Rfam assigns this 117-nucleotide RNA from Larimichthys crocea to the family "U5 spliceosomal RNA". By type it is a spliceosomal small nuclear RNA. From the family's description: U5 RNA is a component of both types of known spliceosome. The precise function of this molecule is unknown, though it is known that the 5' loop is required for splice site selection and p220 binding, and that both the 3' stem-loop and the Sm site are important for Sm protein binding and cap methylation. The source organism's lineage runs through Eukaryota, Teleostei, Neoteleostei, Acanthomorphata and Larimichthys. On this family, see Zwieb, Nucleic Acids Res 1997: "The uRNA database".
[Rfam]
RNA sequence: UUACUCUGAUUUCUCUUCAGAUCGUAUAAAUCGUUCACCUUUUACUAAAGAUUUCCGUGGGAAGAAUUAAUGAGAGUUAAACUCAAUCUUUUUGAUGCCCUGCUUCAAUGUGGGGCU
Numbered sequence: 001u002u003a004c005u006c007u008g009a010u011u012u013c014u015c016u017u018c019a020g021a022u023c024g025u026a027u028a029a030a031u032c033g034u035u036c037a038c039c040u041u042u043u044a045c046u047a048a049a050g051a052u053u054u055c056c057g058u059g060g061g062a063a064g065a066a067u068u069a070a071u072g073a074g075a076g077u078u079a080a081a082c083u084c085a086a087u088c089u090u091u092u093u094g095a096u097g098c099c100c101u102g103c104u105u106c107a108a109u110g111u112g113g114g115g116c117u
Base pairs, nucleotide, nucleotide: 003077004076005075006074009067011066012065013064014063016061017060018059019058028054029053030052031051032050034048035047095117097116098115099114100113101112102111